[Rfam]
RNA sequence: CCCCGUUUUCCCUGACGGGUAGCCUACUGGAACUGGCGUGGUUGGCAACAGCCGGGUCAGGAGCUUCCGGGACAAUGUACCCUCCCAGAAAUGGGCUCUUCAAGCCGAGAGGCGACAGGAGGACCUGCCAGCAUCAGGCGGGGCAGGGG
Number, nucleotide and partner (000 for none) at each position: 001c000002c019003c018004c017005g016006u015007u014008u000009u000010c000011c000012c000013u000014g007015a006016c005017g004018g003019g002020u000021a000022g000023c000024c000025u000026a000027c000028u069029g068030g067031a066032a065033c060034u059035g058036g057037c056038g000039u054040g053041g052042u051043u050044g049045g000046c000047a000048a000049c044050a043051g042052c041053c040054g039055g000056g037057u036058c035059a034060g033061g000062a000063g000064c000065u032066u031067c030068c029069g028070g000071g000072a000073c000074a000075a000076u000077g000078u000079a000080c000081c000082c000083u000084c095085c094086c093087a092088g000089a000090a000091a000092u087093g086094g085095g084096c000097u000098c122099u121100u120101c119102a000103a000104g000105c112106c111107g000108a000109g000110a000111g106112g105113c000114g000115a000116c000117a000118g000119g101120a100121g099122g098123a000124c142125c141126u140127g139128c138129c137130a000131g000132c000133a000134u000135c000136a000137g129138g128139c127140g126141g125142g124143g000144c000145a000146g000147g000148g000149g000
Rfam assigns this 149-nucleotide RNA to the family "Group II catalytic intron D1-D4-7". Pairs were carried over by alignment from the consensus structure. Its family is annotated with Group II intron splicing in the Gene Ontology. Rfam 15.1 lists 1,296 matches to the family in 705 species. Group II introns are found in rRNA, tRNA and mRNA of organelles in fungi, plants and protists, and also in mRNA in bacteria. The literature on the family includes a 2001 paper in Trends Genet by Bonen and Vogel, "The ins and outs of group II introns".